[Rfam]
RNA sequence: GCGGGGCGCGUCUAGGGUUCCGCCACCGCGAACGGUGGGCCUGGUCCGAGAGACGCAGGCGGUCCGCUCGGCAGACGGCACCGUUCCACGGCGGGAGAAAAGCCCGGGAGGC
Numbered sequence: 001g002c003g004g005g006g007c008g009c010g011u012c013u014a015g016g017g018u019u020c021c022g023c024c025a026c027c028g029c030g031a032a033c034g035g036u037g038g039g040c041c042u043g044g045u046c047c048g049a050g051a052g053a054c055g056c057a058g059g060c061g062g063u064c065c066g067c068u069c070g071g072c073a074g075a076c077g078g079c080a081c082c083g084u085u086c087c088a089c090g091g092c093g094g095g096a097g098a099a100a101a102g103c104c105c106g107g108g109a110g111g112c
Stems, first nucleotide, its partner, number of pairs: 008056005015047002020044002022041001023038006058085006065078001087107001089110001093105003
Dot-bracket structure: .......(((((..((...(((((((((....))))))..).)).))....))))).((((((.(............).)))))).(.[...(((.......))).)..]..
This 112-nucleotide RNA sequence from Amycolatopsis acidiphila belongs to the Rfam family "Guanidine-I riboswitch aptamer". This family represents a conserved RNA structure found upstream of the ykkC and yxkD genes in Bacillus subtilis and related genes in other bacteria. The function of this family is unclear although it has been suggested that it may function to switch on efflux pumps and detoxification systems in response to harmful environmental molecules.